The family of this 358-nucleotide RNA sequence from a Burkholderiales bacterium is "Bacterial RNase P class A". The base pairs follow the family's consensus structure, which is taken from published work. Rfam classes the family as a ribozyme.

RNA sequence: GAAGUCCGCCAGACCGUCGCUGCCCGCCCGGGUGCAAACCGGGGCGGGGAGAGGAAAGUCCGGGCUCCAGAGAGCAGGAUGCCGGGUAACGCCCGGCCGCAGCAGCCGCGGCUUCGCCGCCGCGGUCAAGGCGAGGAACAGGGCCACAGAGACGAGUCGCUCCGGGUCACACCGGGGCGGGUGAAACGCGGCAACCUCCAUCCGGAGCAACGCCAAGUAGGCGGACCAUGACGCUGCUCGCGUCGUCCGCGGGUAGGCGGCUCGAGCCCACCGGUAACGGUGGGCCUAGAGGAAUGACGGCCAUAGCGCGCUUUCGGGCGCGCCGUAACAGAACCCGGCUUAUCGGCGGACUUCGACU
Numbered sequence: 001g002a003a004g005u006c007c008g009c010c011a012g013a014c015c016g017u018c019g020c021u022g023c024c025c026g027c028c029c030g031g032g033u034g035c036a037a038a039c040c041g042g043g044g045c046g047g048g049g050a051g052a053g054g055a056a057a058g059u060c061c062g063g064g065c066u067c068c069a070g071a072g073a074g075c076a077g078g079a080u081g082c083c084g085g086g087u088a089a090c091g092c093c094c095g096g097c098c099g100c101a102g103c104a105g106c107c108g109c110g111g112c113u114u115c116g117c118c119g120c121c122g123c124g125g126u127c128a129a130g131g132c133g134a135g136g137a138a139c140a141g142g143g144c145c146a147c148a149g150a151g152a153c154g155a156g157u158c159g160c161u162c163c164g165g166g167u168c169a170c171a172c173c174g175g176g177g178c179g180g181g182u183g184a185a186a187c188g189c190g191g192c193a194a195c196c197u198c199c200a201u202c203c204g205g206a207g208c209a210a211c212g213c214c215a216a217g218u219a220g221g222c223g224g225a226c227c228a229u230g231a232c233g234c235u236g237c238u239c240g241c242g243u244c245g246u247c248c249g250c251g252g253g254u255a256g257g258c259g260g261c262u263c264g265a266g267c268c269c270a271c272c273g274g275u276a277a278c279g280g281u282g283g284g285c286c287u288a289g290a291g292g293a294a295u296g297a298c299g300g301c302c303a304u305a306g307c308g309c310g311c312u313u314u315c316g317g318g319c320g321c322g323c324c325g326u327a328a329c330a331g332a333a334c335c336c337g338g339c340u341u342a343u344c345g346g347c348g349g350a351c352u353u354c355g356a357c358u
Stems, first nucleotide, its partner, number of pairs: 001354010011343001012302001014300005020051002023048006056341003060338005065207004072239004077203005082096005097135001098133003136198002141196002143192003158180001159178007211259004221250006230244005266285008
Dot-bracket structure: ((((((((((((.(((((.((.((((((..............)))))).))....[[[.[[[[[((((...[[[[.((((((((((.....)))))((((..............................))).)((...(((((............((((((((......))))))).).........)))..)))))))))))))...((((......((((((...(((((.]]]]))))))))))).....))))......((((((((....))))))))..........))))).)...............................]]]]]]]].).))))))))))....